[Rfam]
RNA sequence: GCCCCAAACUCUGGAGAGCGGUAGCGACCAACAAUGUGUCGAACUAUCCACCGAAGGUGCGCACGGAGCGUGUUUAGCUCCGUAAUCUCUCAGGUAUCAGGACAGAGGGGUCUGC
Dot-bracket structure: ........(((((......((((.....................)))).(((((..(.(...(((((((.......)))))))...).))).))).......)))))........